[Rfam]
RNA sequence: AAUGCAAAAAAGGGGGGCACAGCAGAAGUGCUCAUAGCAUGACCCCUGUCAGGUAACACUUGCAAAUUCUGCU
Number, nucleotide and partner (000 for none) at each position: 001a000002a000003u000004g000005c000006a000007a000008a000009a000010a000011a000012g000013g046014g045015g044016g043017g000018c041019a000020c000021a073022g072023c071024a070025g069026a068027a067028g040029u039030g038031c000032u000033c000034a000035u000036a000037g000038c030039a029040u028041g018042a000043c016044c015045c014046c013047u000048g000049u000050c062051a061052g060053g059054u058055a000056a000057c000058a054059c053060u052061u051062g050063c000064a000065a000066a000067u027068u026069c025070u024071g023072c022073u021
RNA: Mammalian CPEB3 ribozyme
Organism: Alligator sinensis